[Rfam]
RNA sequence: AAAGAGAAAACCGAAAAUCUUUAAAAGAGUAGGGA
Number, nucleotide and partner (000 for none) at each position: 001a000002a021003a020004g019005a018006g000007a000008a000009a000010a000011c033012c032013g000014a000015a000016a000017a000018u005019c004020u003021u002022u000023a000024a000025a000026a000027g000028a000029g000030u000031a000032g012033g011034g000035a000
RNA: DUF805b RNA